[Rfam]
RNA sequence: ACAAGUCUGUGAUGAAACAAGUUAUCCCUGUCUGAACAACGGUGUUGACCUAUUGAAACCCCUGAGACUUGA
Numbered sequence: 001a002c003a004a005g006u007c008u009g010u011g012a013u014g015a016a017a018c019a020a021g022u023u024a025u026c027c028c029u030g031u032c033u034g035a036a037c038a039a040c041g042g043u044g045u046u047g048a049c050c051u052a053u054u055g056a057a058a059c060c061c062c063u064g065a066g067a068c069u070u071g072a
Base pairs, nucleotide, nucleotide: 002071003070004069005068006067007066

The family of this 72-nucleotide sequence from Hucho hucho is "Small nucleolar RNA R38".
About the family: snoR38 is a C/D box small nucleolar RNA conserved across yeast, human, Arabidopsis and rice. It is encoded in the intron of elongation factor-1 gamma in both pombe and cerevisiae. snoR38 guides the methylation of 2'-O-ribose sites in 28S rRNA.
For this family Rfam cites "Antisense snoRNAs: a family of nucleolar RNAs with long complementarities to rRNA" (Bachellerie et al., Trends Biochem Sci, 1995).
It scores 48 bits against the family's covariance model.
Rfam links the family to the GO terms RNA processing and nucleolus.